[Rfam]
RNA sequence: UAAGCCAGCGAGAACCAUAUGAAUCACUACACUGCUUGUGAUUCAUCUGGUUCUCAAAA
Numbered sequence: 001u002a003a004g005c006c007a008g009c010g011a012g013a014a015c016c017a018u019a020u021g022a023a024u025c026a027c028u029a030c031a032c033u034g035c036u037u038g039u040g041a042u043u044c045a046u047c048u049g050g051u052u053c054u055c056a057a058a059a
Stems, first nucleotide, its partner, number of pairs: 010055008019046008
RNA: Plastid-ccsA-ndhD-1 3UTR RNA